[Rfam]
RNA sequence: GCGCCCAUAGCUCAAUUGGAUAGAGUCACGGACUACGAAUCCGGAGGUUGGAGGUUCAAGUCCUCCUGGGCGCG
Numbered sequence: 001g002c003g004c005c006c007a008u009a010g011c012u013c014a015a016u017u018g019g020a021u022a023g024a025g026u027c028a029c030g031g032a033c034u035a036c037g038a039a040u041c042c043g044g045a046g047g048u049u050g051g052a053g054g055u056u057c058a059a060g061u062c063c064u065c066c067u068g069g070g071c072g073c074g
Base pairs, nucleotide, nucleotide: 001073002072003071004070005069006068007067010026011025012024013023029043030042031041032040050066051065052064053063054062